A member of the RNA family "MIR9563 microRNA precursor family" from Brassica carinata, 125 nucleotides long. Lineage of the source: Eukaryota > Embryophyta > Gunneridae > Brassiceae > Brassica.
RNA sequence: GGAAUAUAAAAAAUUGUCUCUUAACUUUUAACUAAAAAAACUAAGAACCGGUUUUUAAAUCUCUUAUUUAAAAACCGGUUCUUAACUUUUUUAGUUAAAAGUUAAUAGACAGUUUCUUAUAUUCU
Numbered sequence: 001g002g003a004a005u006a007u008a009a010a011a012a013a014u015u016g017u018c019u020c021u022u023a024a025c026u027u028u029u030a031a032c033u034a035a036a037a038a039a040a041c042u043a044a045g046a047a048c049c050g051g052u053u054u055u056u057a058a059a060u061c062u063c064u065u066a067u068u069u070a071a072a073a074a075c076c077g078g079u080u081c082u083u084a085a086c087u088u089u090u091u092u093a094g095u096u097a098a099a100a101g102u103u104a105a106u107a108g109a110c111a112g113u114u115u116c117u118u119a120u121a122u123u124c125u
Stems, first nucleotide, its partner, number of pairs: 001125009011115009021105019042084006